[Rfam]
RNA sequence: AUUACCCAGCGUUGCAGGGUUCUAAAUGCGACGGUGUGUCAACCGCAGAGUGGCUGCGGAUAUAUAAAUUAAAUCGAACAUACAGGAGGAGAAG
Numbered sequence: 001a002u003u004a005c006c007c008a009g010c011g012u013u014g015c016a017g018g019g020u021u022c023u024a025a026a027u028g029c030g031a032c033g034g035u036g037u038g039u040c041a042a043c044c045g046c047a048g049a050g051u052g053g054c055u056g057c058g059g060a061u062a063u064a065u066a067a068a069u070u071a072a073a074u075c076g077a078a079c080a081u082a083c084a085g086g087a088g089g090a091g092a093a094g
Stems, first nucleotide, its partner, number of pairs: 005019003010033005035082005043059005

Rfam assigns this 94-nucleotide sequence to the family "GP20-a RNA". The family's consensus secondary structure is taken from published work. By type it is a cis-regulatory element.